RNA sequence: CCGGCUCCGGUUCACCCUGCGACGGCGCGGGGACCCGGCGGCC
Numbered sequence: 001c002c003g004g005c006u007c008c009g010g011u012u013c014a015c016c017c018u019g020c021g022a023c024g025g026c027g028c029g030g031g032g033a034c035c036c037g038g039c040g041g042c043c
Base pairs, nucleotide, nucleotide: 003043004042005041007038008037009036010035015032016031017030018029019028020027021026